[Rfam]
RNA: Small nucleolar RNA snoR97
Organism: Camellia sinensis
Nucleotides: 108
Stems, first nucleotide, its partner, number of pairs: 044101006057087004062081004
Number, partner (000 for none) and nucleotide at each position: 001000a002000c003000a004000a005000a006000a007000u008000g009000u010000g011000g012000g013000u014000g015000u016000a017000u018000a019000g020000g021000g022000a023000c024000u025000g026000a027000a028000a029000a030000a031000a032000c033000u034000c035000a036000u037000a038000a039000a040000u041000u042000a043000u044101g045100u046099g047098u048097u049096u050000u051000c052000a053000u054000c055000a056000a057087c058086u059085u060084c061000u062081u063080c064079u065078c066000u067000u068000g069000a070000a071000u072000a073000u074000c075000c076000a077000c078065g079064a080063g081062a082000u083000u084060g085059g086058a087057g088000c089000c090000a091000a092000a093000u094000a095000a096049g097048a098047g099046c100045a101044c102000u103000a104000c105000a106000u107000u108000u